[Rfam]
The family of this 162-nucleotide sequence from Blastococcus mobilis is "c-di-AMP riboswitch aptamer (ydaO/yuaA leader)".
The source organism's lineage runs through Bacteria, Actinomycetota, Actinomycetes, Geodermatophilales and Blastococcus.
RNA sequence: CGCCGGACGCCGCCGAACCGGGCGUGAGCGCUGCUGACGCCCGGACCGGGGACCCACCGCAGUACUGGGGUGAAGCGCGGGCCGGAGUGAGAUCCGGCGCGCCGGGCGAGUUCCCCGCCCGAACCCGACAGCUAACUCGGUAGGCGGCUGUGGAGAACAGGA
Numbered sequence: 001c002g003c004c005g006g007a008c009g010c011c012g013c014c015g016a017a018c019c020g021g022g023c024g025u026g027a028g029c030g031c032u033g034c035u036g037a038c039g040c041c042c043g044g045a046c047c048g049g050g051g052a053c054c055c056a057c058c059g060c061a062g063u064a065c066u067g068g069g070g071u072g073a074a075g076c077g078c079g080g081g082c083c084g085g086a087g088u089g090a091g092a093u094c095c096g097g098c099g100c101g102c103c104g105g106g107c108g109a110g111u112u113c114c115c116c117g118c119c120c121g122a123a124c125c126c127g128a129c130a131g132c133u134a135a136c137u138c139g140g141u142a143g144g145c146g147g148c149u150g151u152g153g154a155g156a157a158c159a160g161g162a
Base pairs, nucleotide, nucleotide: 011146012145013144014143018044019043020042021041022040023039024038025037045141046140047139048138049137050136055067056066068126069125070124076101077100078099079098104120105119106118107117
Dot-bracket structure: ..........((((...((((((((...........))))))))((((((....((.........))(((.....((((..................))))..((((.........))))...))).........)))))).))))................